[Rfam]
RNA sequence: UGAGUAGCACAGAUGAUUGCGCCUAUUAGCACCGAAAGGUCUUAGGUGAGGAAAGUCCGGGCUUCACAGGGCAGGGUGCCGGAUAACGUCCGGUGGAGGUGACUCCAAGGCUAGUGCAACAGAGAUAUACCGCCAAAUUCGUUUGGUAAGGAUGGAAAGGUAGCGUAAGAGACUACCGCAUUCUUGGUAACAAGAAUGGCUAUGUAAACCCCACUCGAAGCAAGACCGAAUGGAGAGCGAUACGGUUGCCCGCCGUGCUUUCGGGUUGGUCGCUUGAUCUUACUGGUAACAGUAAGACUAGAUAGAUAAUCAUCUAAUACAGAACUCGGCUUAUAGUGCUGCUCACAUG
Dot-bracket structure: ((((((((((((((((((.((((((..(...........)..))))))....[[[.[[[[[((((...[[[[.((((((((((.....)))))(((((....)))).)((...(((((...........((((((((....))))))..)).......(((((.........)))))(((((((((....)))))))).)..)))..)))))))))))))...((((.....((((((...(((((.]]]]))))))))))).....))))......((((((((....))))))))..........)))))))..........]]]]]]]].).))))))))))....
This 349-nucleotide sequence from Anaerosporobacter mobilis belongs to the Rfam family "Bacterial RNase P class A". The family's RNA type in Rfam is ribozyme. Pairs were carried over by alignment from the consensus structure, which is taken from published work. About the family: Ribonuclease P (RNase P) is a ubiquitous endoribonuclease, found in archaea, bacteria and eukarya as well as chloroplasts and mitochondria. A search with the family's covariance model found it, with a score of 314 bits.